[Rfam]
RNA sequence: GCAUAACUGAAGAAUCAAAUGAUUACUAAUAUAUUGAGGGUAAUCUUAAAGUUUACUGAUGUG
Numbered sequence: 001g002c003a004u005a006a007c008u009g010a011a012g013a014a015u016c017a018a019a020u021g022a023u024u025a026c027u028a029a030u031a032u033a034u035u036g037a038g039g040g041u042a043a044u045c046u047u048a049a050a051g052u053u054u055a056c057u058g059a060u061g062u063g
Stems, first nucleotide, its partner, number of pairs: 002063004013054002016051001021045006
Shown here is a 63-nucleotide RNA from Fukomys damarensis, a member of the family "Small nucleolar RNA Z39". Rfam links the family to the GO terms RNA processing and nucleolus. By type it is a C/D-box small nucleolar RNA. The base pairs follow the family's consensus structure, which was predicted with PFOLD. The family has 5 seed sequences and 935 matches in Rfam 15.1.